[Rfam]
RNA sequence: CAUGCGGUGUCAGGGAUUGCUUCUGCAAUUGGCUUGAUAGCGGCAUGGCUUCAAAUUUGAGGU
Numbered sequence: 001c002a003u004g005c006g007g008u009g010u011c012a013g014g015g016a017u018u019g020c021u022u023c024u025g026c027a028a029u030u031g032g033c034u035u036g037a038u039a040g041c042g043g044c045a046u047g048g049c050u051u052c053a054a055a056u057u058u059g060a061g062g063u
Base pairs, nucleotide, nucleotide: 001047002046003045004044005043007041008040011036012035013034014033